[Rfam]
RNA sequence: UAGAGGCAAUAGUUCCUAUUGCCUUCAGGCCUGGCACUGGGAUUUUAGGUCAUCAUAAAUUAAAAUUUGAUUAUCUUCACUCAAAAUAUUAGGAUAAUGGGGUUAUUUGUUUAUUUUCUGAAAUUUGCAGAAUCAAACACUU
Numbered sequence: 001u002a003g004a005g006g007c008a009a010u011a012g013u014u015c016c017u018a019u020u021g022c023c024u025u026c027a028g029g030c031c032u033g034g035c036a037c038u039g040g041g042a043u044u045u046u047a048g049g050u051c052a053u054c055a056u057a058a059a060u061u062a063a064a065a066u067u068u069g070a071u072u073a074u075c076u077u078c079a080c081u082c083a084a085a086a087u088a089u090u091a092g093g094a095u096a097a098u099g100g101g102g103u104u105a106u107u108u109g110u111u112u113a114u115u116u117u118c119u120g121a122a123a124u125u126u127g128c129a130g131a132a133u134c135a136a137a138c139a140c141u142u
Stems, first nucleotide, its partner, number of pairs: 001055001003053001005051003014042005020036004069134004074129001081121003084116005092108005
Overview
Rfam assigns this 142-nucleotide RNA from Phyllostomus discolor to the family "Small nucleolar RNA SNORA79". The base pairs follow the family's consensus structure, which was predicted with RNAalifold. Rfam describes the family as follows. ACA65 (SNORA79) is a member of the H/ACA class of snoRNAs that guide the sites of modification of uridines to pseudouridines. This snoRNA was identified by computational screening and its expression in mouse experimentally verified by Northern blot and primer extension analysis. A search with the family's covariance model found it, with a score of 105 bits.